The record is a 133-nucleotide sequence from Cnephaeus nilssonii, which matches "Small nucleolar RNA SNORA31" in Rfam. About the family: ACA31 (SNORA31) belongs to the H/ACA class of snoRNAs which are thought to guide the sites of modification of uridines to pseudouridines. A reference for the family is Huttenhofer et al. (2001), "RNomics: an experimental approach that identifies 201 candidates for novel, small, non-messenger RNAs in mouse", EMBO J. The family's RNA type in Rfam is H/ACA-box small nucleolar RNA. Rfam links the family to the GO terms RNA processing and nucleolus.
RNA sequence: AUGCAUCUAUUUGACAGACCUGGAGCAGUUACUAUCUGUUGCUACGGUUACAGUGCAGAUGCAAGAAAAAAGGGUCCUCGCGCUUUCUGUCUGUCUGAUUGUGGCAGCCAAGAUUGAAUGGGGGAAUACAAAU
Numbered sequence: 001a002u003g004c005a006u007c008u009a010u011u012u013g014a015c016a017g018a019c020c021u022g023g024a025g026c027a028g029u030u031a032c033u034a035u036c037u038g039u040u041g042c043u044a045c046g047g048u049u050a051c052a053g054u055g056c057a058g059a060u061g062c063a064a065g066a067a068a069a070a071a072g073g074g075u076c077c078u079c080g081c082g083c084u085u086u087c088u089g090u091c092u093g094u095c096u097g098a099u100u101g102u103g104g105c106a107g108c109c110a111a112g113a114u115u116g117a118a119u120g121g122g123g124g125a126a127u128a129c130a131a132a133u
Stems, first nucleotide, its partner, number of pairs: 002063007012052002017049004024040005075125005083116001086113003091107005